[Rfam]
Nucleotides: 244
Base pairs, nucleotide, nucleotide: 016125017124018123019122020121021120022119024082025081026080027079028078029077030076031075033072034071035070036065037064038063039062046058047057083117084116085114086113141238142237143236144235146233147232155224156223157222158221159220160219161218162217171197172196173195174194176192177191178190179189180188
Number, partner (000 for none) and nucleotide at each position: 001000a002000a003000u004000g005000a006000a007000u008000u009000a010000a011000u012000u013000c014000a015000c016125c017124a018123u019122g020121u021120g022119u023000u024082c025081u026080u027079a028078u029077u030076g031075g032000c033072g034071u035070c036065a037064c038063c039062c040000a041000u042000c043000g044000u045000g046058a047057u048000a049000u050000c051000u052000u053000c054000u055000a056000u057047a058046u059000g060000a061000u062039g063038g064037g065036u066000u067000u068000u069000a070035g071034a072033u073000a074000c075031c076030u077029g078028a079027u080026a081025a082024g083117g084116c085114u086113g087000a088000u089000u090000c091000u092000c093000c094000c095000u096000u097000u098000u099000u100000u101000u102000g103000g104000g105000a106000g107000u108000c109000a110000g111000c112000g113086u114085a115000a116084g117083u118000g119022a120021c121020a122019c123018a124017u125016g126000u127000c128000a129000g130000a131000u132000u133000g134000a135000u136000a137000u138000u139000u140000c141238a142237g143236a144235a145000g146233a147232a148000u149000g150000u151000a152000u153000c154000u155224c156223c157222a158221g159220c160219u161218g162217u163000u164000g165000a166000u167000a168000a169000a170000u171197g172196g173195a174194a175000a176192g177191a178190a179189a180188g181000c182000c183000u184000u185000u186000c187000u188180c189179u190178u191177u192176c193000u194174u195173u196172u197171c198000g199000a200000c201000c202000c203000a204000a205000u206000c207000a208000a209000a210000u211000c212000c213000u214000g215000a216000u217162a218161c219160a220159g221158u222157u223156g224155g225000u226000c227000a228000u229000g230000a231000u232147u233146u234000c235144u236143u237142c238141u239000a240000c241000a242000u243000c244000u
Shown here is a 244-nucleotide RNA from Kazachstania africana, a member of the family "Small nucleolar RNA snR31". For this family Rfam cites "Identification and functional analysis of a novel yeast small nucleolar RNA" (Dandekar and Tollervey, Nucleic Acids Res, 1993). The family's RNA type in Rfam is H/ACA-box small nucleolar RNA. The family is grouped with related families in Rfam's "SNORA8 clan". Its family is annotated with RNA processing and nucleolus in the Gene Ontology.